[Rfam]
RNA sequence: UGGGAGAAUCUGUAAAGCUCAGGAGGGAUAGCGCCGUACAUGCUAUAGUUUACUUACGUUUGUGUUCAUGGCGCUAUCUAUCCUGAGCCUCAUGGAUUCUCUCU
Numbered sequence: 001u002g003g004g005a006g007a008a009u010c011u012g013u014a015a016a017g018c019u020c021a022g023g024a025g026g027g028a029u030a031g032c033g034c035c036g037u038a039c040a041u042g043c044u045a046u047a048g049u050u051u052a053c054u055u056a057c058g059u060u061u062g063u064g065u066u067c068a069u070g071g072c073g074c075u076a077u078c079u080a081u082c083c084u085g086a087g088c089c090u091c092a093u094g095g096a097u098u099c100u101c102u103c104u
Stems, first nucleotide, its partner, number of pairs: 010095001017088008026079010
This 104-nucleotide RNA from Zingiber officinale belongs to the Rfam family "MIR390 microRNA precursor family". A reference for the family is Gustafson et al. (2005), "ASRP: the Arabidopsis Small RNA Project Database", Nucleic Acids Res. Pairs were carried over by alignment from the consensus structure, which was predicted with WAR. A search with the family's covariance model found it, with a score of 84 bits.